[Rfam]
RNA sequence: GAUGCCGGUGGCUCCGGCGCUCAACCACCCUAUGACCAGGGAGAAAAGACCCAACCCACCCCACCGCGGCAACAUCCGUCCACGGGUCACUCGCGCGAGUGAUCCUGCGCCGGAGCGCUGGAUUCCGACGAAGCGCUCAGGGCAAGGUCGGCACGACAACUCCCGCAUAUGCCACGGCACAUGCGACGGCCCCCGGCCGGGACGGGCAUCCCGAACGAGGGCCUCACCACCCAGGAAACGGAAGCUUUCCCG
Numbered sequence: 001g002a003u004g005c006c007g008g009u010g011g012c013u014c015c016g017g018c019g020c021u022c023a024a025c026c027a028c029c030c031u032a033u034g035a036c037c038a039g040g041g042a043g044a045a046a047a048g049a050c051c052c053a054a055c056c057c058a059c060c061c062c063a064c065c066g067c068g069g070c071a072a073c074a075u076c077c078g079u080c081c082a083c084g085g086g087u088c089a090c091u092c093g094c095g096c097g098a099g100u101g102a103u104c105c106u107g108c109g110c111c112g113g114a115g116c117g118c119u120g121g122a123u124u125c126c127g128a129c130g131a132a133g134c135g136c137u138c139a140g141g142g143c144a145a146g147g148u149c150g151g152c153a154c155g156a157c158a159a160c161u162c163c164c165g166c167a168u169a170u171g172c173c174a175c176g177g178c179a180c181a182u183g184c185g186a187c188g189g190c191c192c193c194c195g196g197c198c199g200g201g202a203c204g205g206g207c208a209u210c211c212c213g214a215a216c217g218a219g220g221g222c223c224u225c226a227c228c229a230c231c232c233a234g235g236a237a238a239c240g241g242a243a244g245c246u247u248u249c250c251c252g
Stems, first nucleotide, its partner, number of pairs: 007231004016080004087102006117152005188223005194217002199212004234250005
A member of the RNA family "Streptomyces sRNA 4677" from Streptomyces tirandamycinicus, 252 nucleotides long. The base pairs follow the family's consensus structure. Rfam classes the family as a small RNA. Rfam's curators write: Located in the intergenic region between anti-sigma factor SCO4677 gene and a putative regulatory protein gene SCO4676. scr4677 expression requires the SCO4677 activity and scr4677 sRNA itself seem to affect the levels of the SCO4676-associated transcripts. A search with the family's covariance model found it, with a score of 80 bits. NCBI's taxonomy places the organism under Bacteria, Bacillati, Actinomycetes, Streptomycetaceae, Streptomyces.